[Rfam]
RNA sequence: ACCCGAUAAAGGCAAAGCAGGUGAAAGCUUGUGACGCAAAGCUAGAGGGGCUUCAGAUGCACCCCAGCAUCAUGCCAGCCAGCUGUCGAA
Numbered sequence: 001a002c003c004c005g006a007u008a009a010a011g012g013c014a015a016a017g018c019a020g021g022u023g024a025a026a027g028c029u030u031g032u033g034a035c036g037c038a039a040a041g042c043u044a045g046a047g048g049g050g051c052u053u054c055a056g057a058u059g060c061a062c063c064c065c066a067g068c069a070u071c072a073u074g075c076c077a078g079c080c081a082g083c084u085g086u087c088g089a090a
Base pairs, nucleotide, nucleotide: 012037013036017032018031019030020029021028022027040084041083042082043081047080048079049076050075051074057070058069059068060067
RNA: c-di-GMP-I riboswitch aptamer
Organism: Paenibacillus foliorum